[Rfam]
RNA sequence: UCCCGUGAUGGCAUGAAAUCUUUGAGACCUGAUUAUUUUCUUAAUUGAUGAAAAUCACAAGCAUAUCGCUGAGGAC
Number, nucleotide and partner (000 for none) at each position: 001u075002c074003c073004c000005g000006u000007g000008a000009u000010g000011g000012c000013a000014u000015g000016a000017a000018a000019u000020c000021u000022u000023u000024g000025a000026g000027a000028c000029c000030u000031g000032a046033u043034u000035a000036u000037u000038u000039u000040c000041u000042u000043a033044a000045u000046u032047g000048a000049u000050g000051a000052a000053a000054a000055u000056c000057a000058c000059a000060a000061g000062c000063a000064u000065a000066u000067c000068g000069c000070u000071g000072a000073g003074g002075a001076c000
Rfam assigns this 76-nucleotide RNA from Paspalum vaginatum to the family "Small nucleolar RNA R66". The family's consensus secondary structure was predicted with PFOLD. A reference for the family is Chen et al. (2003), "The high diversity of snoRNAs in plants: identification and comparative study of 120 snoRNA genes from Oryza sativa", Nucleic Acids Res. snoR66 is a C/D box small nucleolar RNA, which acts as a methylation guide for 18S ribosomal RNA in plants. snoR66 has been alternatively named snoZ269 in rice.